[Rfam]
RNA sequence: AAAUACAAAGAUAAAAACGCAACGUAAGAAAUGUGAUCUUACAGAGUCGGUAGGUAGCCCGGUCGCACCAAUUGGUGUAAGUAACCCUCCCUCCUUAGGGUCGUCCAUUCUUUGCUUAGUAUUA
Numbered sequence: 001a002a003a004u005a006c007a008a009a010g011a012u013a014a015a016a017a018c019g020c021a022a023c024g025u026a027a028g029a030a031a032u033g034u035g036a037u038c039u040u041a042c043a044g045a046g047u048c049g050g051u052a053g054g055u056a057g058c059c060c061g062g063u064c065g066c067a068c069c070a071a072u073u074g075g076u077g078u079a080a081g082u083a084a085c086c087c088u089c090c091c092u093c094c095u096u097a098g099g100g101u102c103g104u105c106c107a108u109u110c111u112u113u114g115c116u117u118a119g120u121a122u123u124a
Stems, first nucleotide, its partner, number of pairs: 006114006044064002047062004065078005089100003
The family of this 124-nucleotide RNA from Thomasclavelia spiroformis is "azaaromatic riboswitch aptamer (yjdF RNA)".
Taxonomically the source falls in Thomasclavelia spiroformis (Bacteria, Bacillati, Erysipelotrichia, Thomasclavelia).